[Rfam]
A member of the RNA family "rpsB sRNA", 101 nucleotides long.
RNA sequence: CACACGUGGGGCAUGGGUUGAUCCGGGAGAAAUCCGGAUUGGUCCGCCGGUGGCGCUUAGCGCUCACGCCCUGCGGAGGUUCAACCGGAAAUAGGAGUAAU
Numbered sequence: 001c002a003c004a005c006g007u008g009g010g011g012c013a014u015g016g017g018u019u020g021a022u023c024c025g026g027g028a029g030a031a032a033u034c035c036g037g038a039u040u041g042g043u044c045c046g047c048c049g050g051u052g053g054c055g056c057u058u059a060g061c062g063c064u065c066a067c068g069c070c071c072u073g074c075g076g077a078g079g080u081u082c083a084a085c086c087g088g089a090a091a092u093a094g095g096a097g098u099a100a101u
Stems, first nucleotide, its partner, number of pairs: 001078001003076001005075007015045002024036002027034001052063001054062003